Rfam assigns this 98-nucleotide RNA sequence from Clostridium magnum to the family "Purine riboswitch aptamer". A search with the family's covariance model found it, with a score of 70 bits. The source organism's lineage runs through Bacteria, Bacillati, Bacillota, Eubacteriales and Clostridium magnum.
[Rfam]
RNA sequence: GAAUAAUUUCUUAAUUUAACUCGUAUAUCCCCUGAAUAUGGCAGGGAGUUUCUACCGGGAACCGCAAAGUCCUGACUAUGAGUGAAGUUAUUGUGGCA
Numbered sequence: 001g002a003a004u005a006a007u008u009u010c011u012u013a014a015u016u017u018a019a020c021u022c023g024u025a026u027a028u029c030c031c032c033u034g035a036a037u038a039u040g041g042c043a044g045g046g047a048g049u050u051u052c053u054a055c056c057g058g059g060a061a062c063c064g065c066a067a068a069g070u071c072c073u074g075a076c077u078a079u080g081a082g083u084g085a086a087g088u089u090a091u092u093g094u095g096g097c098a
Stems, first nucleotide, its partner, number of pairs: 019083007030046005056074005